[Rfam]
RNA sequence: UAAAUGAUUUGUUAGGCGAGGCUCCGCUACAAACACAGGCUACUGCCCAAAAACGUCGAGAGACACCAAUGGGUAUAACAGGAAUUGUCGAUAUAAGGCUCUUCUUAACGUAGCUAAAAAUAAACAACUGUUUAUUUUUUACGUUGUAACGUGCUAAAGCUCCACGAAGAAAUCACAGA
Number, nucleotide and partner (000 for none) at each position: 001u000002a000003a000004a000005u175006g174007a173008u172009u171010u170011g165012u164013u096014a000015g161016g160017c159018g000019a000020g155021g154022c153023u000024c000025c151026g150027c000028u148029a147030c146031a145032a144033a000034c000035a000036c000037a000038g000039g114040c113041u112042a111043c110044u000045g074046c073047c072048c071049a070050a000051a000052a000053a000054c000055g064056u063057c062058g000059a000060g000061a000062g057063a056064c055065a000066c000067c000068a000069a000070u049071g048072g047073g046074u045075a000076u000077a000078a000079c000080a000081g105082g104083a103084a102085u000086u000087g099088u098089c097090g000091a000092u000093a000094u000095a000096a013097g089098g088099c087100u000101c000102u084103u083104c082105u081106u000107a000108a000109c000110g043111u042112a041113g040114c039115u000116a139117a138118a137119a136120a135121u134122a133123a132124a000125c000126a000127a000128c000129u000130g000131u000132u123133u122134a121135u120136u119137u118138u117139u116140u000141a000142c000143g000144u032145u031146g030147u029148a028149a000150c026151g025152u000153g022154c021155u020156a000157a000158a000159g017160c016161u015162c000163c000164a012165c011166g000167a000168a000169g000170a010171a009172a008173u007174c006175a005176c000177a000178g000179a000
RNA: M-box riboswitch aptamer (ykoK leader)
Organism: Fundicoccus ignavus